Rfam assigns this 233-nucleotide RNA from Rummeliibacillus sp. TYF005 to the family "Group II catalytic intron D1-D4-6".
Pairs were carried over by alignment from the consensus structure.
Nucleotides: 233
Base pairs, nucleotide, nucleotide: 011035012034013033014032018030019029020028022201024199025198038086039085042083043082044081045080046078047077048073049072050071051070052069053068054067056065057064058063123227126224127223128222130220131219144218145217146216147215148214149213151175152174155170156169157168158167181212182211183210184209185208186207187206188205189204191202
Number, partner (000 for none) and nucleotide at each position: 001000g002000a003000a004000u005000u006000c007000c008000c009000g010000u011035c012034g013033a014032g015000u016000a017000a018030g019029a020028a021000c022201u023000a024199g025198c026000c027000a028020u029019u030018c031000a032014c033013u034012c035011g036000u037000a038086g039085c040000g041000a042083g043082u044081c045080u046078u047077g048073g049072a050071g051070g052069g053068c054067a055000a056065c057064g058063a059000g060000u061000a062000a063058u064057c065056g066000c067054u068053g069052u070051c071050u072049u073048u074000a075000a076000g077047c078046g079000u080045a081044g082043a083042c084000a085039g086038u087000u088000a089000g090000c091000u092000a093000c094000c095000g096000a097000g098000c099000c100000g101000u102000a103000a104000g105000c106000c107000a108000a109000u110000u111000g112000g113000u114000u115000g116000a117000g118000g119000g120000g121000a122000u123227u124000a125000a126224g127223c128222u129000c130220c131219g132000a133000a134000a135000u136000a137000c138000u139000a140000a141000u142000u143000c144218g145217a146216g147215a148214a149213g150000a151175c152174u153000g154000a155170u156169g157168c158167a159000g160000u161000g162000g163000c164000c165000u166000g167158u168157g169156c170155a171000g172000a173000a174152a175151g176000c177000a178000a179000a180000a181212u182211u183210u184209c185208u186207a187206c188205u189204g190000a191202c192000g193000c194000a195000a196000u197000g198025g199024c200000a201022a202191g203000a204189c205188a206187g207186u208185a209184g210183a211182a212181a213149c214148u215147u216146c217145u218144c219131c220130g221000a222128a223127g224126u225000c226000g227123g228000u229000u230000a231000c232000c233000a